[Rfam]
RNA sequence: AAUUAUCAUCAGGAGUGAUCUUUAAGUAAAGAUCCACCAACCGAGCCUAAAAGCUACGGUGGUUAGUUCCAUUAAACGGAGGAUGUGCCUUGAAAAAGGAAAAAGUGGAACCGCCUG
Numbered sequence: 001a002a003u004u005a006u007c008a009u010c011a012g013g014a015g016u017g018a019u020c021u022u023u024a025a026g027u028a029a030a031g032a033u034c035c036a037c038c039a040a041c042c043g044a045g046c047c048u049a050a051a052a053g054c055u056a057c058g059g060u061g062g063u064u065a066g067u068u069c070c071a072u073u074a075a076a077c078g079g080a081g082g083a084u085g086u087g088c089c090u091u092g093a094a095a096a097a098g099g100a101a102a103a104a105g106u107g108g109a110a111c112c113g114c115c116u117g
Base pairs, nucleotide, nucleotide: 007085008084009083010082015035017034018033019032020031021030022029023028036063037062038061041059042058043057044055045054046053088099089098090097091096
Dot-bracket structure: ......((((....(.(((((((....))))))))(((..((((((......))).))).)))..................))))..((((....))))..................
The record is a 117-nucleotide RNA sequence, which matches "SAM-I/IV (S-adenosyl methionine) riboswitch aptamer" in Rfam. Clan: SAM clan. On this family, see Weinberg et al., RNA 2008: "The aptamer core of SAM-IV riboswitches mimics the ligand-binding site of SAM-I riboswitches". Its family is annotated with S-adenosylmethionine metabolic process and regulation of gene expression in the Gene Ontology.